[Rfam]
The family of this 71-nucleotide RNA from Flavihumibacter sp. ZG627 is "tRNA".
The family's RNA type in Rfam is transfer RNA.
The source organism's lineage runs through Bacteria, Pseudomonadati, Bacteroidota, Chitinophagaceae and Flavihumibacter.
The family's consensus secondary structure is taken from published work.
RNA sequence: UGGCCUAUAGUAUAAUGGUAGUACGACAGAUUUUGGUUCUGUUUGUCUAGGUUCGAAUCCUGGUAGGCCAA
Number, nucleotide and partner (000 for none) at each position: 001u070002g069003g068004c067005c066006u065007a064008u000009a000010g024011u023012a022013u021014a000015a000016u000017g000018g000019u000020a000021g013022u012023a011024c010025g000026a042027c041028a040029g039030a038031u000032u000033u000034u000035g000036g000037u000038u030039c029040u028041g027042u026043u000044u000045g000046u000047c063048u062049a061050g060051g059052u000053u000054c000055g000056a000057a000058u000059c051060c050061u049062g048063g047064u007065a006066g005067g004068c003069c002070a001071a000